[Rfam]
Nucleotides: 091
Base pairs, nucleotide, nucleotide: 001091002090003089004088005087006086009083010082011080012079013078016077019074021072023070024069026067027064028063030062031059033057034056035055036054040052042051043050044049
Number, partner (000 for none) and nucleotide at each position: 001091g002090g003089g004088g005087g006086g007000a008000g009083g010082c011080c012079g013078g014000a015000u016077c017000c018000u019074g020000g021072g022000c023070u024069g025000u026067g027064u028063c029000u030062u031059c032000c033057g034056u035055g036054c037000c038000c039000u040052g041000u042051g043050c044049u045000c046000c047000g048000g049044g050043g051042c052040c053000u054036g055035u056034g057033c058000u059031g060000u061000u062030g063028g064027a065000u066000u067026c068000c069024c070023g071000c072021u073000g074019c075000c076000c077016g078013c079012c080011g081000c082010g083009c084000a085000g086006c087005c088004c089003c090002c091001u